[Rfam]
RNA sequence: UAGUAUUAUAGCUCUUUUAGAAUUUGUCUAGCAGGUUUUCAGGUCCUCACUGGAAGACUCCU
Numbered sequence: 001u002a003g004u005a006u007u008a009u010a011g012c013u014c015u016u017u018u019a020g021a022a023u024u025u026g027u028c029u030a031g032c033a034g035g036u037u038u039u040c041a042g043g044u045c046c047u048c049a050c051u052g053g054a055a056g057a058c059u060c061c062u
Stems, first nucleotide, its partner, number of pairs: 034059007042051003